RNA: Epstein-Barr virus nuclear antigen (EBNA) IRES
RNA sequence: AAAAGGCGCGGGAUAGCGUGCGCUACCGGAUGGCGGGUAACUUAGGAAGCGUUUCUUGAGCUUCCCUGGGAUGAGCGUUUGGGAGAGCUGAUUCUGCAGCCCAGAGAGUAGUCUCAGGGCAUCCUCUGGAGCCUGACCUGUGAUCGUCGCAUCAUAGACCGCCAGUAGACCUGGGAGCAGAUUCACCGCCGCGGCCGUCUCCUUUAAGUGUGAAUC
Numbered sequence: 001a002a003a004a005g006g007c008g009c010g011g012g013a014u015a016g017c018g019u020g021c022g023c024u025a026c027c028g029g030a031u032g033g034c035g036g037g038u039a040a041c042u043u044a045g046g047a048a049g050c051g052u053u054u055c056u057u058g059a060g061c062u063u064c065c066c067u068g069g070g071a072u073g074a075g076c077g078u079u080u081g082g083g084a085g086a087g088c089u090g091a092u093u094c095u096g097c098a099g100c101c102c103a104g105a106g107a108g109u110a111g112u113c114u115c116a117g118g119g120c121a122u123c124c125u126c127u128g129g130a131g132c133c134u135g136a137c138c139u140g141u142g143a144u145c146g147u148c149g150c151a152u153c154a155u156a157g158a159c160c161g162c163c164a165g166u167a168g169a170c171c172u173g174g175g176a177g178c179a180g181a182u183u184c185a186c187c188g189c190c191g192c193g194g195c196c197g198u199c200u201c202c203u204u205u206a207a208g209u210g211u212g213a214a215u216c
Stems, first nucleotide, its partner, number of pairs: 005024003049192003058126003063084004090123002096120002101118002128187002133180003138157007162174004